[Rfam]
RNA sequence: UCUAACUGCAUUAUUGAUAACUCAAAUGAGAACACCAAUAAAGUUCGAAGGGGUUACAUUGAAACCUCCCAUAUGCAUGUUUAGCUAACAAAUAAAUAUGUGUAAAGCUGGGUAAAGUCGAGUGAAACCUACCCUAACACGUAAUGGUGAGGAAAACUAAGUCAGAGGUGACUAGGUAGGCAUAGUGCGGAUGGCGAUUGA
Numbered sequence: 001u002c003u004a005a006c007u008g009c010a011u012u013a014u015u016g017a018u019a020a021c022u023c024a025a026a027u028g029a030g031a032a033c034a035c036c037a038a039u040a041a042a043g044u045u046c047g048a049a050g051g052g053g054u055u056a057c058a059u060u061g062a063a064a065c066c067u068c069c070c071a072u073a074u075g076c077a078u079g080u081u082u083a084g085c086u087a088a089c090a091a092a093u094a095a096a097u098a099u100g101u102g103u104a105a106a107g108c109u110g111g112g113u114a115a116a117g118u119c120g121a122g123u124g125a126a127a128c129c130u131a132c133c134c135u136a137a138c139a140c141g142u143a144a145u146g147g148u149g150a151g152g153a154a155a156a157c158u159a160a161g162u163c164a165g166a167g168g169u170g171a172c173u174a175g176g177u178a179g180g181c182a183u184a185g186u187g188c189g190g191a192u193g194g195c196g197a198u199u200g201a
Base pairs, nucleotide, nucleotide: 018056019055020054021053022052023051032045057193058192059191060190068112069111070110071109072104073103074102075101076100077099078098079097080096081095082094083093119189120188122186123185128180129179130178131177132176133152134151135150139148140147157175158174159173161172162171163170164169
RNA: Group II catalytic intron D1-D4-5